[Rfam]
RNA sequence: GCUGGGUUCAUGCUACCUGUAAUUCUGAUCGAAGGCCUUCAAACUGAGGGGAAUGUGGGAAAUCUGUCUUUGCUUUCCGCCUAUGCGCAUGUUGAUGCGUGGGCAGAGCUAAACGCAGAUCUAAUGCUUGAUGGUUGUGUCCUAUCCGAUUCCGACGUUUGACAUUGUUGCGCUGCCGGAGGGCUGGGCGCAUCAAGGUCAUUAAAGAGCCGGGGACUGCCUGAGGCCGGUUAACGGAGCAAGGAAAACUGGCUGCGUCGGAGAGGCGGAUAGAAUUGCAUGCCGCUGGUAAUACUGCCUCUGUCUGGAGAGCACAAGGCACCUGCUGACCUUUUUUUUU
Numbered sequence: 001g002c003u004g005g006g007u008u009c010a011u012g013c014u015a016c017c018u019g020u021a022a023u024u025c026u027g028a029u030c031g032a033a034g035g036c037c038u039u040c041a042a043a044c045u046g047a048g049g050g051g052a053a054u055g056u057g058g059g060a061a062a063u064c065u066g067u068c069u070u071u072g073c074u075u076u077c078c079g080c081c082u083a084u085g086c087g088c089a090u091g092u093u094g095a096u097g098c099g100u101g102g103g104c105a106g107a108g109c110u111a112a113a114c115g116c117a118g119a120u121c122u123a124a125u126g127c128u129u130g131a132u133g134g135u136u137g138u139g140u141c142c143u144a145u146c147c148g149a150u151u152c153c154g155a156c157g158u159u160u161g162a163c164a165u166u167g168u169u170g171c172g173c174u175g176c177c178g179g180a181g182g183g184c185u186g187g188g189c190g191c192a193u194c195a196a197g198g199u200c201a202u203u204a205a206a207g208a209g210c211c212g213g214g215g216a217c218u219g220c221c222u223g224a225g226g227c228c229g230g231u232u233a234a235c236g237g238a239g240c241a242a243g244g245a246a247a248a249c250u251g252g253c254u255g256c257g258u259c260g261g262a263g264a265g266g267c268g269g270a271u272a273g274a275a276u277u278g279c280a281u282g283c284c285g286c287u288g289g290u291a292a293u294a295c296u297g298c299c300u301c302u303g304u305c306u307g308g309a310g311a312g313c314a315c316a317a318g319g320c321a322c323c324u325g326c327u328g329a330c331c332u333u334u335u336u337u338u339u340u
Base pairs, nucleotide, nucleotide: 001036002035003034004018005017006016007015023033024032025031042338043337046334047333048332049331050330055326056325057324058323059322063318065316066315067314072313073312074311075310076309077308078307079306083300085298086297087296090294091293092292093291132285133284134283135282137281138280139279140278142273144271145270146269147268148267150263151262152261153260154259155258156257157256158255160201161200162199163198165196166195167194169192170191171190172189173188174187175184176183177182202206208254209253210252211251212250213249218246220244221243222242227237228236229235
Dot-bracket structure: (((((((.......))))....(((.....)))))).....((..(((((....(((((...(.(((....((((((((...(.(((..((((......................................((((.((((.(.(((((.(((((((((.((((.(((.(((((((((....)))..)))))).))).))))(...).((((((....(.(((....(((.....)))....))).)..)))))))))))))))...))))).)....)))))))).....)))).))).).....))))))))))).)...)))))...)))))..))..
Overview
Shown here is a 340-nucleotide sequence from Coemansia asiatica, a member of the family "Metazoan signal recognition particle RNA". The family is grouped with related families in Rfam's "SRP clan". The source organism's lineage runs through Eukaryota, Opisthokonta, Kickxellomycotina, Kickxellaceae and Coemansia. It is annotated as a non-coding RNA gene.